[Rfam]
RNA sequence: UCGAAGCUCCGUCUAUAAACGGAUAACAUUUACAUCUUAGUGUAUACUUAAGUAAAGGGGCAAUAAACAAUUUCGUCUUCUAGCAAGACGAUUGGUAUUGCUCCUUU
Numbered sequence: 001u002c003g004a005a006g007c008u009c010c011g012u013c014u015a016u017a018a019a020c021g022g023a024u025a026a027c028a029u030u031u032a033c034a035u036c037u038u039a040g041u042g043u044a045u046a047c048u049u050a051a052g053u054a055a056a057g058g059g060g061c062a063a064u065a066a067a068c069a070a071u072u073u074c075g076u077c078u079u080c081u082a083g084c085a086a087g088a089c090g091a092u093u094g095g096u097a098u099u100g101c102u103c104c105u106u107u
Base pairs, nucleotide, nucleotide: 008023009022010021011020012019054107055106056105057104058103059102060101061100062099063098064097065096069092073088074087076085
RNA: Plastid-psbA-1 3UTR RNA